This 425-nucleotide part of an RNA from Jaapia argillacea belongs to the Rfam family "Eukaryotic large subunit ribosomal RNA". A search with the family's covariance model found it, with a score of 3287 bits. Taxonomically the source falls in Jaapia argillacea (Eukaryota, Basidiomycota, Jaapiaceae, Jaapia). The base pairs follow the family's consensus structure, which is taken from published work. The literature on the family includes a 2001 paper in Science by Yusupov et al., "Crystal structure of the ribosome at 5.5 A resolution".

[Rfam]
RNA sequence: UGACCUCAAAUCAGGUAGGACUACCCGCUGAACUUAAGCAUAUCAAUAAGCGGAGGAAAAGAAACUAACAAGGAUUCCCCUAGUAACUGCGAGUGAAGCGGGAAAAGCUCAAAUUUAAAAUCUGGCGGUCUUCGGCCGUCCGAGUUGUAAUUUAGAGAAGUGUUAUCCGUGCUGGACCGUGUACAAGUCUCCUGGAACGGGGCGUCAUAGAGGGUGAGAAUCCCGUAUAUGACACGGACUACCAGUGCUCUGUGAUGCGCUCUCGAAGAGUCGAGUUGUUUGGGAAUGCAGCUCAAAAUGGGUGGUAAAUUCCAUCUAAAGCUAAAUAUUGGCGAGAGACCGAUAGCGCACAAGUACCGUGAGGGAAAGGUGAAAAGAACUUUGAAAAGAGAGUUAAACAGUACGUGAAAUUGUUGAAAGGGAAA
Numbered sequence: 001u002g003a004c005c006u007c008a009a010a011u012c013a014g015g016u017a018g019g020a021c022u023a024c025c026c027g028c029u030g031a032a033c034u035u036a037a038g039c040a041u042a043u044c045a046a047u048a049a050g051c052g053g054a055g056g057a058a059a060a061g062a063a064a065c066u067a068a069c070a071a072g073g074a075u076u077c078c079c080c081u082a083g084u085a086a087c088u089g090c091g092a093g094u095g096a097a098g099c100g101g102g103a104a105a106a107g108c109u110c111a112a113a114u115u116u117a118a119a120a121u122c123u124g125g126c127g128g129u130c131u132u133c134g135g136c137c138g139u140c141c142g143a144g145u146u147g148u149a150a151u152u153u154a155g156a157g158a159a160g161u162g163u164u165a166u167c168c169g170u171g172c173u174g175g176a177c178c179g180u181g182u183a184c185a186a187g188u189c190u191c192c193u194g195g196a197a198c199g200g201g202g203c204g205u206c207a208u209a210g211a212g213g214g215u216g217a218g219a220a221u222c223c224c225g226u227a228u229a230u231g232a233c234a235c236g237g238a239c240u241a242c243c244a245g246u247g248c249u250c251u252g253u254g255a256u257g258c259g260c261u262c263u264c265g266a267a268g269a270g271u272c273g274a275g276u277u278g279u280u281u282g283g284g285a286a287u288g289c290a291g292c293u294c295a296a297a298a299u300g301g302g303u304g305g306u307a308a309a310u311u312c313c314a315u316c317u318a319a320a321g322c323u324a325a326a327u328a329u330u331g332g333c334g335a336g337a338g339a340c341c342g343a344u345a346g347c348g349c350a351c352a353a354g355u356a357c358c359g360u361g362a363g364g365g366a367a368a369g370g371u372g373a374a375a376a377g378a379a380c381u382u383u384g385a386a387a388a389g390a391g392a393g394u395u396a397a398a399c400a401g402u403a404c405g406u407g408a409a410a411u412u413g414u415u416g417a418a419a420g421g422g423a424a425a
Base pairs, nucleotide, nucleotide: 024055025053026052027051028050029049035042036041065072066071076103077102078101079100086094087093106323107322108321109320112152113151114150115149118146119145121143122142124140125139126138127137157264158263159261160260161259162258164257165256166255167254169248170247171246172245173244174243175242177237178236179235180234181233182232187203189202190201191200192199206210213223214222273294274293275292276291277290278289279288300317301316302315303314304313357364358363380391381390382389383388